[Rfam]
RNA sequence: GCGAUUAUUAUCAUCACCGAACCGGUGGUGGGAUAGCGCGCGUCUGAGGUCAGAACCGUCGCCAACCCGCCCAGGAGGCGGGUUUU
Numbered sequence: 001g002c003g004a005u006u007a008u009u010a011u012c013a014u015c016a017c018c019g020a021a022c023c024g025g026u027g028g029u030g031g032g033a034u035a036g037c038g039c040g041c042g043u044c045u046g047a048g049g050u051c052a053g054a055a056c057c058g059u060c061g062c063c064a065a066c067c068c069g070c071c072c073a074g075g076a077g078g079c080g081g082g083u084u085u086u
Stems, first nucleotide, its partner, number of pairs: 011031007064084008

Description
Rfam assigns this 86-nucleotide sequence from Asticcacaulis endophyticus to the family "Pseudomonas sRNA P9". This small RNA (sRNA) was computationally identified in the genome of the opportunistic pathogen Pseudomonas aeruginosa and its expression verified by northern blot analysis. P9 appears to be conserved in several Pseudomonas species in addition to Bordetella spp. In both Pseudomonas and Bordetella spp P9 appears to be located upstream of a predicted threonine dehydratase gene. The source organism's lineage runs through Bacteria, Pseudomonadati, Pseudomonadota, Caulobacterales and Asticcacaulis. On this family, see Livny et al., Nucleic Acids Res 2006: "Identification of 17 Pseudomonas aeruginosa sRNAs and prediction of sRNA-encoding genes in 10 diverse pathogens using the bioinformatic tool sRNAPredict2". It is annotated as a non-coding RNA gene. Pairs were carried over by alignment from the consensus structure, which was predicted with RNAalifold. It scores 56 bits against the family's covariance model.